[Rfam]
RNA sequence: UUUCGAUAAGAGCAAAACCGGCGAAAGCCGGGGACGCAAAGCCACGGGUCUAAAGCAUUGUUGCUAUGACGGCCGGGCUGCCGAA
Numbered sequence: 001u002u003u004c005g006a007u008a009a010g011a012g013c014a015a016a017a018c019c020g021g022c023g024a025a026a027g028c029c030g031g032g033g034a035c036g037c038a039a040a041g042c043c044a045c046g047g048g049u050c051u052a053a054a055g056c057a058u059u060g061u062u063g064c065u066a067u068g069a070c071g072g073c074c075g076g077g078c079u080g081c082c083g084a085a
Base pairs, nucleotide, nucleotide: 012037013036018031019030020029021028022027040079041078042077043076045075046074047073048070049069050068055064056063057062
About this RNA: c-di-GMP-I riboswitch aptamer: an 85-nucleotide RNA sequence from Thermoanaerobacteraceae bacterium SP2. The family's consensus secondary structure is taken from published work. A search with the family's covariance model found it, with a score of 83 bits. Taxonomically the source falls in Thermoanaerobacteraceae (Bacteria, Bacillati, Clostridia, Thermoanaerobacterales). Rfam links the family to the GO term cyclic-di-GMP binding.